RNA sequence: GGAAUGAGAUGGGGUCUGGUGGCCCUCCCGGUCUUCAAAACCGAAGUGAGCUUAAAUAGCUUUGGCAGGUUCGAUUCCUGCCUCUUCC
Numbered sequence: 001g002g003a004a005u006g007a008g009a010u011g012g013g014g015u016c017u018g019g020u021g022g023c024c025c026u027c028c029c030g031g032u033c034u035u036c037a038a039a040a041c042c043g044a045a046g047u048g049a050g051c052u053u054a055a056a057u058a059g060c061u062u063u064g065g066c067a068g069g070u071u072c073g074a075u076u077c078c079u080g081c082c083u084c085u086u087c088c
Stems, first nucleotide, its partner, number of pairs: 001088004006083001008081001011026006029043004048062004066080004

Background:
Selenocysteine transfer RNA: an 88-nucleotide RNA sequence from Ferrimonas lipolytica. Taxonomically the source falls in Ferrimonas (Bacteria, Pseudomonadati, Pseudomonadota, Alteromonadales). A search with the family's covariance model found it, with a score of 62 bits. A reference for the family is Mizutani and Goto (2000), "Eukaryotic selenocysteine tRNA has the 9/4 secondary structure", FEBS Lett.